[Rfam]
The family of this 58-nucleotide sequence from Vibrio viridaestus is "Xanthine riboswitch aptamer (NMT1 RNA)". The literature on the family includes a 2020 paper in RNA by Yu and Breaker, "A bacterial riboswitch class senses xanthine and uric acid to regulate genes associated with purine oxidation".

RNA sequence: CGAUGGAGUAGAAGCGGUCUGUAAUAGCUAUUGGUUAUUGCUGGACAUUGCUCCAAUA
Numbered sequence: 001c002g003a004u005g006g007a008g009u010a011g012a013a014g015c016g017g018u019c020u021g022u023a024a025u026a027g028c029u030a031u032u033g034g035u036u037a038u039u040g041c042u043g044g045a046c047a048u049u050g051c052u053c054c055a056a057u058a
Stems, first nucleotide, its partner, number of pairs: 005054006015043001018045002021041006